[Rfam]
RNA sequence: UGUGUUCACUACUGUAAGUUGCUCUGGUUAAGAGUGUCUGCUAAAUGACUGAAA
Numbered sequence: 001u002g003u004g005u006u007c008a009c010u011a012c013u014g015u016a017a018g019u020u021g022c023u024c025u026g027g028u029u030a031a032g033a034g035u036g037u038c039u040g041c042u043a044a045a046u047g048a049c050u051g052a053a054a
Stems, first nucleotide, its partner, number of pairs: 013043001014041003020036006
RNA: UnaL2 LINE 3' element
Organism: Salmo trutta